The record is a 154-nucleotide RNA from Butyrivibrio proteoclasticus, which matches "Clostridiales-1 RNA" in Rfam.
[Rfam]
RNA sequence: UGAUAAUAAAUGGAUCAAAGUCCAAGAAUCUCAUGCUUGCAUGAGAGAUUCUUGGACCUUGAGACAUAUACACGCAUGAGGAAGUAGCACGAUAGUGCGGAUUCCGAAUGUGUGCAUGGAUUUCGAAAGCGUAGCGGAGAAAUCCAUGUUAUUA
Numbered sequence: 001u002g003a004u005a006a007u008a009a010a011u012g013g014a015u016c017a018a019a020g021u022c023c024a025a026g027a028a029u030c031u032c033a034u035g036c037u038u039g040c041a042u043g044a045g046a047g048a049u050u051c052u053u054g055g056a057c058c059u060u061g062a063g064a065c066a067u068a069u070a071c072a073c074g075c076a077u078g079a080g081g082a083a084g085u086a087g088c089a090c091g092a093u094a095g096u097g098c099g100g101a102u103u104c105c106g107a108a109u110g111u112g113u114g115c116a117u118g119g120a121u122u123u124c125g126a127a128a129g130c131g132u133a134g135c136g137g138a139g140a141a142a143u144c145c146a147u148g149u150u151a152u153u154a
Base pairs, nucleotide, nucleotide: 001154002153003152004151005150006149007148011066012065016061017060018059020057021056022055023054024053025052026051027050028049029048030047031046032043033042034041035040071114072113073112074111075110076109077108080105081104082103083102087098088097089096090095118145119144120143121142122141123140124139129135130134
The base pairs follow the family's consensus structure, which is taken from published work. Lineage of the source: Bacteria > Clostridia > Lachnospirales > Lachnospiraceae > Butyrivibrio proteoclasticus.